[Rfam]
RNA: Exoribonuclease-resistant RNA (xrRNA) plant-infecting virus (class 3)
RNA sequence: ACAUGAGCCAGCAUAUCUGUGCUGCAAUGAGUGGAGGUUCACCUAGUCCUGCUA
Numbered sequence: 001a002c003a004u005g006a007g008c009c010a011g012c013a014u015a016u017c018u019g020u021g022c023u024g025c026a027a028u029g030a031g032u033g034g035a036g037g038u039u040c041a042c043c044u045a046g047u048c049c050u051g052c053u054a
Stems, first nucleotide, its partner, number of pairs: 001038002008034002011032001012029002018051002021048001